The record is a 73-nucleotide sequence from Jaculus jaculus, which matches "mir-3473 microRNA precursor family" in Rfam. A search with the family's covariance model found it, with a score of 72 bits.

RNA sequence: ACUGCUGAGCCAUCUCUCUAGCCCUAUUUUUAGCUUAAAAAAAAUUAUUGGGCUGGAGAGAUGGCUUAGCAGU
Numbered sequence: 001a002c003u004g005c006u007g008a009g010c011c012a013u014c015u016c017u018c019u020a021g022c023c024c025u026a027u028u029u030u031u032a033g034c035u036u037a038a039a040a041a042a043a044a045u046u047a048u049u050g051g052g053c054u055g056g057a058g059a060g061a062u063g064g065c066u067u068a069g070c071a072g073u
Base pairs, nucleotide, nucleotide: 002072003071004070005069006068007067008066009065010064011063012062013061014060015059016058017057018056019055020054021053022052023051024050